[Rfam]
RNA sequence: AAAAAGCCCGCUUCGCGUCGGCAAAAGCGGGCUUCGUAUGCGGGGCUGUUUCGGCGUCGGACGGCUUGAUGGCCGCCUUUCGCUUUAGCUGUUUUGGGUCACCCCGCGUCCGCAAGCUGAAUUCAAAUCGACGCUGAACGCGCAUGUUAGCACGCCUUCCCAAGCGCGUGC
Numbered sequence: 001a002a003a004a005a006g007c008c009c010g011c012u013u014c015g016c017g018u019c020g021g022c023a024a025a026a027g028c029g030g031g032c033u034u035c036g037u038a039u040g041c042g043g044g045g046c047u048g049u050u051u052c053g054g055c056g057u058c059g060g061a062c063g064g065c066u067u068g069a070u071g072g073c074c075g076c077c078u079u080u081c082g083c084u085u086u087a088g089c090u091g092u093u094u095u096g097g098g099u100c101a102c103c104c105c106g107c108g109u110c111c112g113c114a115a116g117c118u119g120a121a122u123u124c125a126a127a128u129c130g131a132c133g134c135u136g137a138a139c140g141c142g143c144a145u146g147u148u149a150g151c152a153c154g155c156c157u158u159c160c161c162a163a164g165c166g167c168g169u170g171c
Stems, first nucleotide, its partner, number of pairs: 004034009015022002040134003048083002053080002059074002062072001064070001085120006096105003106113002151170005
Dot-bracket structure: ...(((((((((..((....))...))))))))).....(((.....((...((....((.(.(.....).)))....)).)).((((((.....(((....)))((....)).))))))...........)))................(((((..........))))).

Notes:
The family of this 171-nucleotide RNA sequence from Trinickia soli is "Burkholderia sRNA Bp2_Cand287_SIPHT". On this family, see Khoo et al., BMC Genomics 2012: "Computational discovery and RT-PCR validation of novel Burkholderia conserved and Burkholderia pseudomallei unique sRNAs". Rfam classes the family as a small RNA.